[Rfam]
RNA sequence: AGCGAUAAAGGCAAACCCUGAGUGAUCAGGGGACGCAAAGUAAAGGGUCUUUAGACUUACAGGGAAGUAGGGAUAAAGAAGACAGCCUUAAUUCAGAAAAAGACAGCCUUACUGCCGGAG
Numbered sequence: 001a002g003c004g005a006u007a008a009a010g011g012c013a014a015a016c017c018c019u020g021a022g023u024g025a026u027c028a029g030g031g032g033a034c035g036c037a038a039a040g041u042a043a044a045g046g047g048u049c050u051u052u053a054g055a056c057u058u059a060c061a062g063g064g065a066a067g068u069a070g071g072g073a074u075a076a077a078g079a080a081g082a083c084a085g086c087c088u089u090a091a092u093u094c095a096g097a098a099a100a101a102g103a104c105a106g107c108c109u110u111a112c113u114g115c116c117g118g119a120g
Base pairs, nucleotide, nucleotide: 003117004116011036012035016031017030018029019028020027021026034106039113040112041111042110044109045108046107047104048103049102050101051100052099
This 120-nucleotide RNA from Candidatus Brocadia sinica belongs to the Rfam family "c-di-GMP-I-GGC riboswitch aptamer". The organism belongs to Candidatus Brocadia sinica, within Bacteria. For this family Rfam cites "Bioinformatic analysis of riboswitch structures uncovers variant classes with altered ligand specificity" (Weinberg et al., Proc Natl Acad Sci U S A, 2017). A search with the family's covariance model found it, with a score of 63 bits.